[Rfam]
A member of the RNA family "Glycine riboswitch aptamer" from Allosphingosinicella ginsenosidimutans, 98 nucleotides long. Taxonomically the source falls in Allosphingosinicella (Bacteria, Pseudomonadati, Pseudomonadota, Sphingomicrobiaceae). It scores 59 bits against the family's covariance model.
RNA sequence: CAGGGACGCGCGGGAGAGGGCGGCAAGGCUUCGGCCGGGCCGCCGCCGAAGGAGCAACCGCCCCGGAAUCUCUCAGGCAGAAGGACCGCGCGCUCGAG
Numbered sequence: 001c002a003g004g005g006a007c008g009c010g011c012g013g014g015a016g017a018g019g020g021c022g023g024c025a026a027g028g029c030u031u032c033g034g035c036c037g038g039g040c041c042g043c044c045g046c047c048g049a050a051g052g053a054g055c056a057a058c059c060g061c062c063c064c065g066g067a068a069u070c071u072c073u074c075a076g077g078c079a080g081a082a083g084g085a086c087c088g089c090g091c092g093c094u095c096g097a098g
Base pairs, nucleotide, nucleotide: 007092008091009090010089011088012087013086020043021042022041023040045078046077047076048074049073052072053071054070058066059065